[Rfam]
RNA sequence: UGGCGCCCAAUGGUGAGGCAUGGAUAAGGGGGAAUUCGCGAGGGAAGAGGCGUCUAAUCGUUUGGCGAAAAAAGCGAAAGUUGGUUCAAGAAAGAUCACCCCGGGAGCCUGCUGCACUGCUCUUAAAGGUACAGUAGCACCUAACUAUGGGACAAGAAUUAAAUAAGCAUAAAUUUUUUGUUAAGCAAUUAAAAGAAGCUUUGAAAACACGGGGAGUAAAGAUUAAGAGUAAUGAUCUUUUUAAGUUUUUUGGCCUUAUUAAGGACACCUCUCCGU
Numbered sequence: 001u002g003g004c005g006c007c008c009a010a011u012g013g014u015g016a017g018g019c020a021u022g023g024a025u026a027a028g029g030g031g032g033a034a035u036u037c038g039c040g041a042g043g044g045a046a047g048a049g050g051c052g053u054c055u056a057a058u059c060g061u062u063u064g065g066c067g068a069a070a071a072a073a074g075c076g077a078a079a080g081u082u083g084g085u086u087c088a089a090g091a092a093a094g095a096u097c098a099c100c101c102c103g104g105g106a107g108c109c110u111g112c113u114g115c116a117c118u119g120c121u122c123u124u125a126a127a128g129g130u131a132c133a134g135u136a137g138c139a140c141c142u143a144a145c146u147a148u149g150g151g152a153c154a155a156g157a158a159u160u161a162a163a164u165a166a167g168c169a170u171a172a173a174u175u176u177u178u179u180g181u182u183a184a185g186c187a188a189u190u191a192a193a194a195g196a197a198g199c200u201u202u203g204a205a206a207a208c209a210c211g212g213g214g215a216g217u218a219a220a221g222a223u224u225a226a227g228a229g230u231a232a233u234g235a236u237c238u239u240u241u242u243a244a245g246u247u248u249u250u251u252g253g254c255c256u257u258a259u260u261a262a263g264g265a266c267a268c269c270u271c272u273c274c275g276u
Stems, first nucleotide, its partner, number of pairs: 006031003014026002036050002039047001086129002090124001095121001097119001102114003135155001137153001140151004160203003164198001210252008220238006261276001263274003
RNA: Mason-Pfizer monkey virus packaging signal